About this RNA
Rfam assigns this 227-nucleotide sequence to the family "Group II catalytic intron D1-D4-6".
RNA sequence: CAAGCCCCGCCCGGCGAAGGGUGAGCCCGCCCAGCCGGUAGCGAGCCUUGCGACGGAGACGGCAACGCCUCCGGCGAUGCGUAGGCACGCGAGCGAGUGGGCCGUGGGGAAAGCAGCCACGAAAACUAUGUCAUCCCGGGUGCCGAGGGUGUUGCGUUACCUGAAGGCGACGGCGGUCUGUCCGCAACAGGGCGAGGACAGGGCGCACCCGGCGGGGUGUACGACCA
Numbered sequence: 001c002a003a004g005c006c007c008c009g010c011c012c013g014g015c016g017a018a019g020g021g022u023g024a025g026c027c028c029g030c031c032c033a034g035c036c037g038g039u040a041g042c043g044a045g046c047c048u049u050g051c052g053a054c055g056g057a058g059a060c061g062g063c064a065a066c067g068c069c070u071c072c073g074g075c076g077a078u079g080c081g082u083a084g085g086c087a088c089g090c091g092a093g094c095g096a097g098u099g100g101g102c103c104g105u106g107g108g109g110a111a112a113g114c115a116g117c118c119a120c121g122a123a124a125a126c127u128a129u130g131u132c133a134u135c136c137c138g139g140g141u142g143c144c145g146a147g148g149g150u151g152u153u154g155c156g157u158u159a160c161c162u163g164a165a166g167g168c169g170a171c172g173g174c175g176g177u178c179u180g181u182c183c184g185c186a187a188c189a190g191g192g193c194g195a196g197g198a199c200a201g202g203g204c205g206c207a208c209c210c211g212g213c214g215g216g217g218u219g220u221a222c223g224a225c226c227a
Base pairs, nucleotide, nucleotide: 012037013036014035015034019032020031021030022029025193027192039092041090042089045086046085047084048083049081050080051076052075054073055072056071057070058069060067061066114219116218117217118216120214121213136212137211138210139209140208141207142168143167144166147162148161149160150159173206174205175204177202178201179200180199181198182197183196